A member of the RNA family "DUF805 RNA" from Polaribacter aquimarinus, 71 nucleotides long.
The family's RNA type in Rfam is cis-regulatory element.
RNA sequence: AUAAAGUGGAGUCCAGAUAUCACUAAAAAAAAACGGGGCGUUAUCAGAAAAGCCUAACGAGUAUGAAAACU
Numbered sequence: 001a002u003a004a005a006g007u008g009g010a011g012u013c014c015a016g017a018u019a020u021c022a023c024u025a026a027a028a029a030a031a032a033a034c035g036g037g038g039c040g041u042u043a044u045c046a047g048a049a050a051a052g053c054c055u056a057a058c059g060a061g062u063a064u065g066a067a068a069a070c071u
Stems, first nucleotide, its partner, number of pairs: 006023004037054003044065001
Rfam 15.1 lists 281 matches to the family in 219 species.